[Rfam]
Background:
The family of this 80-nucleotide RNA sequence from Laodelphax striatellus is "mir-67 microRNA precursor family". Rfam 15.1 lists 196 matches to the family in 188 species. Pairs were carried over by alignment from the consensus structure, which was predicted with RNAalifold. A search with the family's covariance model found it, with a score of 66 bits.
RNA sequence: AGUGAUGGUCACUCACUCAAUCCGGGUGUGAUGUGUGUACCUUUUGCCAUCACAACCUCCUUGAGUGAGCGAUCGUGCUC
Numbered sequence: 001a002g003u004g005a006u007g008g009u010c011a012c013u014c015a016c017u018c019a020a021u022c023c024g025g026g027u028g029u030g031a032u033g034u035g036u037g038u039a040c041c042u043u044u045u046g047c048c049a050u051c052a053c054a055a056c057c058u059c060c061u062u063g064a065g066u067g068a069g070c071g072a073u074c075g076u077g078c079u080c
Stems, first nucleotide, its partner, number of pairs: 009071001012069009024057002027054007